RNA sequence: AAAGCAGGCUGCAAUUACAGUGCUUCAUUUUGUGGGAGAACUAAUAUCCUGCUGAAAGAAAAGCCAUGUUGAUUGUUUCUGAUUUUGCCUUUCUGGGGGUAAAAUCAUGUAGCGCAGUGCCACACAGCCAGGC
Numbered sequence: 001a002a003a004g005c006a007g008g009c010u011g012c013a014a015u016u017a018c019a020g021u022g023c024u025u026c027a028u029u030u031u032g033u034g035g036g037a038g039a040a041c042u043a044a045u046a047u048c049c050u051g052c053u054g055a056a057a058g059a060a061a062a063g064c065c066a067u068g069u070u071g072a073u074u075g076u077u078u079c080u081g082a083u084u085u086u087g088c089c090u091u092u093c094u095g096g097g098g099g100u101a102a103a104a105u106c107a108u109g110u111a112g113c114g115c116a117g118u119g120c121c122a123c124a125c126a127g128c129c130a131g132g133c
Stems, first nucleotide, its partner, number of pairs: 003053006019042003023038004064127001067124003071120001074117001080107012
Dot-bracket structure: ..((((((..........(((.((((........)))).))).....))))))..........(..(((.(..(.....((((((((((((....)))))))))))).........)..).)))..)......
Small nucleolar RNA SNORA69: a 133-nucleotide RNA sequence from Nannospalax galili.
A search with the family's covariance model found it, with a score of 88 bits.
About the family: U69 is a member of the H/ACA class of small nucleolar RNAs (snoRNAs) which act as guides in the the modification of uridines to pseudouridines.
The family's RNA type in Rfam is H/ACA-box small nucleolar RNA.